[Rfam]
RNA sequence: GUGCUGGCUUAGUCAUGUGGUUACAUCGAUUUAUUUUAUGAAAACUUACUUACCUGGGUGCUCAUGGGCAAGAAGAGGAGAAAGAGUUCGAGCCUUCUGUUUCAGCAUUGAACCACCGACGCCAUCCAGCCAAUUU
Dot-bracket structure: ..(((((....(((..((((.....((((..........................................................)))).....................)))).))).....)))))......

This 136-nucleotide RNA sequence from Mytilus coruscus belongs to the Rfam family "Vault RNA".
The source organism's lineage runs through Eukaryota, Bilateria, Mytilidae, Mytilinae and Mytilus.
A reference for the family is Stadler et al. (2009), "Evolution of Vault RNAs", Mol Biol Evol.
By type it is a non-coding RNA gene.
The base pairs follow the family's consensus structure, which is taken from published work.